[Rfam]
RNA sequence: AGGCUUAUGGUGAUAUUAUAUGUUAAUCUUAGCGGAUUUCGGUGAGAUUUUUAAUCGAGAAUCUUAUUGUUACACACAUUGAGGCCU
Numbered sequence: 001a002g003g004c005u006u007a008u009g010g011u012g013a014u015a016u017u018a019u020a021u022g023u024u025a026a027u028c029u030u031a032g033c034g035g036a037u038u039u040c041g042g043u044g045a046g047a048u049u050u051u052u053a054a055u056c057g058a059g060a061a062u063c064u065u066a067u068u069g070u071u072a073c074a075c076a077c078a079u080u081g082a083g084g085c086c087u
Stems, first nucleotide, its partner, number of pairs: 001087005
RNA: Small nucleolar RNA R11/Z151